[Rfam]
RNA sequence: GUUGAGGUCCGGGCCCCUCUGGCAGCGUCGCCCGGCGCUGUGAUGUCGGACUUCCCAU
Numbered sequence: 001g002u003u004g005a006g007g008u009c010c011g012g013g014c015c016c017c018u019c020u021g022g023c024a025g026c027g028u029c030g031c032c033c034g035g036c037g038c039u040g041u042g043a044u045g046u047c048g049g050a051c052u053u054c055c056c057a058u
Stems, first nucleotide, its partner, number of pairs: 006052007022041008
Dot-bracket structure: .....(((((((.........((((((((....))))))))....)))))))......

The family of this 58-nucleotide sequence from Azospirillum sp. TSH58 is "terC RNA".
Rfam 15.1 lists 1,112 matches to the family in 772 species.
It scores 56 bits against the family's covariance model.
The organism belongs to Azospirillum, within Bacteria.
It is annotated as a cis-regulatory element.